[Rfam]
RNA sequence: UAGGAGAUGAUGAGCUUACUCGGAUUCCCCUUCAGGAUAUACUGUUGGAGGAAGGACUUGCCAAGAGUAGGUAGCCUCUU
Numbered sequence: 001u002a003g004g005a006g007a008u009g010a011u012g013a014g015c016u017u018a019c020u021c022g023g024a025u026u027c028c029c030c031u032u033c034a035g036g037a038u039a040u041a042c043u044g045u046u047g048g049a050g051g052a053a054g055g056a057c058u059u060g061c062c063a064a065g066a067g068u069a070g071g072u073a074g075c076c077u078c079u080u
Stems, first nucleotide, its partner, number of pairs: 002080004